[Rfam]
RNA: ES036 (CssrF) sRNA
Organism: Shigella flexneri
RNA sequence: AAAAUCGUGCAAAUUCAAAAUAUUGCAGGGGACGCGUAGGCCU
Numbered sequence: 001a002a003a004a005u006c007g008u009g010c011a012a013a014u015u016c017a018a019a020a021u022a023u024u025g026c027a028g029g030g031g032a033c034g035c036g037u038a039g040g041c042c043u
Stems, first nucleotide, its partner, number of pairs: 005030002008027005